Flavo-1 RNA: a 118-nucleotide RNA from Flavobacterium restrictum. Lineage of the source: Bacteria > Bacteroidota > Flavobacteriia > Flavobacteriales > Flavobacterium. A search with the family's covariance model found it, with a score of 45 bits.
Nucleotides: 118
Base pairs, nucleotide, nucleotide: 022110023109024108026106031101032100036095037094038093042090043089044088045087046086047085048084049083050082051081052080053079054078055077056076057075058074059073060072061071062070063069064068
Number, partner (000 for none) and nucleotide at each position: 001000u002000u003000a004000u005000a006000c007000c008000c009000g010000u011000u012000g013000u014000u015000u016000g017000c018000g019000u020000g021000a022110g023109g024108g025000a026106u027000a028000g029000c030000a031101g032100u033000g034000g035000a036095g037094c038093u039000c040000u041000u042090u043089u044088u045087u046086u047085g048084a049083c050082u051081a052080c053079c054078c055077u056076g057075u058074c059073a060072g061071g062070g063069u064068u065000u066000u067000g068064a069063a070062c071061c072060c073059u074058g075057a076056c077055a078054g079053g080052g081051u082050a083049g084048u085047c086046a087045a088044a089043a090042a091000a092000a093038a094037g095036c096000g097000g098000g099000a100032a101031c102000g103000u104000a105000c106026a107000g108024c109023c110022c111000g112000a113000c114000c115000c116000g117000a118000c